[Rfam]
RNA sequence: CUAGCUAGCACCGCAAGGUUUCCACCGCAGGUGGAACAGACUCUCGCGCCUCGCCAAGGCGAGGCGCGUCCGGCUCCGCCGGAUUUUGCUAACCCGCCGGUGCAGUCACCGGC
Numbered sequence: 001c002u003a004g005c006u007a008g009c010a011c012c013g014c015a016a017g018g019u020u021u022c023c024a025c026c027g028c029a030g031g032u033g034g035a036a037c038a039g040a041c042u043c044u045c046g047c048g049c050c051u052c053g054c055c056a057a058g059g060c061g062a063g064g065c066g067c068g069u070c071c072g073g074c075u076c077c078g079c080c081g082g083a084u085u086u087u088g089c090u091a092a093c094c095c096g097c098c099g100g101u102g103c104a105g106u107c108a109c110c111g112g113c
Stems, first nucleotide, its partner, number of pairs: 010019003021035006045068009070082004096113006
Pseudomon-groES RNA: a 113-nucleotide RNA sequence from Pseudomonas sp. 8AS. The family's RNA type in Rfam is cis-regulatory element.